[Rfam]
RNA sequence: UUCGACUCCUCACGUGGCGUCAUCUUCGGUUAAUUCCCCAGGGCAGGAAUGCAGCAAGGAGACCGGGCUCUGGCGGGUGCGUGGGGAGUCCUUUUA
Numbered sequence: 001u002u003c004g005a006c007u008c009c010u011c012a013c014g015u016g017g018c019g020u021c022a023u024c025u026u027c028g029g030u031u032a033a034u035u036c037c038c039c040a041g042g043g044c045a046g047g048a049a050u051g052c053a054g055c056a057a058g059g060a061g062a063c064c065g066g067g068c069u070c071u072g073g074c075g076g077g078u079g080c081g082u083g084g085g086g087a088g089u090c091c092u093u094u095u096a
Base pairs, nucleotide, nucleotide: 004090005089006088007087008086009085010084011083012082013081014080015077018075019074020073021072022071025067026066027065028064029063030062034061035060036059037058043052044051045050
Overview
The record is a 96-nucleotide RNA from Arcanobacterium haemolyticum, which matches "Bacterial small signal recognition particle RNA" in Rfam. About the family: The signal recognition particle (SRP) is a universally conserved ribonucleoprotein involved in the co-translational targeting of proteins to membranes. The family's consensus secondary structure is taken from published work. It scores 63 bits against the family's covariance model. NCBI's taxonomy places the organism under Bacteria, Actinomycetes, Actinomycetaceae, Arcanobacterium, Arcanobacterium haemolyticum.